[Rfam]
RNA sequence: AAACAAAGAGAUCAACACUAGUCAGCGAUAUUCGCCCACUAGUGCGAAACUG
Dot-bracket structure: ...............(((((((..((((...))))..)))))))........
RNA: ffh sRNA
Organism: Candidatus Pelagibacter communis